Rfam assigns this 118-nucleotide RNA sequence from Smithella sp. SCADC to the family "Group II catalytic intron D1-D4-2". The base pairs follow the family's consensus structure. Lineage of the source: Bacteria > Thermodesulfobacteriota > Syntrophales > Smithellaceae > Smithella. Rfam 15.1 lists 1,231 matches to the family in 625 species.
[Rfam]
RNA sequence: GGAGGCAGGCCCUCCGAAAUCGGCAUUCAGGUGCUGGUUUCAAACCACCUCUGGGUGCUGUGGUCCAAAGCCAUGGUGCUGAGCGCAGAGGAAAAAGGGCCGGAAGAACCGGUCAGGU
Numbered sequence: 001g002g003a004g005g006c007a008g009g010c011c012c013u014c015c016g017a018a019a020u021c022g023g024c025a026u027u028c029a030g031g032u033g034c035u036g037g038u039u040u041c042a043a044a045c046c047a048c049c050u051c052u053g054g055g056u057g058c059u060g061u062g063g064u065c066c067a068a069a070g071c072c073a074u075g076g077u078g079c080u081g082a083g084c085g086c087a088g089a090g091g092a093a094a095a096a097g098g099g100c101c102g103g104a105a106g107a108a109c110c111g112g113u114c115a116g117g118u
Stems, first nucleotide, its partner, number of pairs: 001015005016041006023034004046117001048091006054080002057077003061073004098114006
Dot-bracket structure: (((((.....)))))((((((.((((....)))).))))))....(.((((((((.(((.((((.....)))).))).)).....))))))......((((((.....))))))..).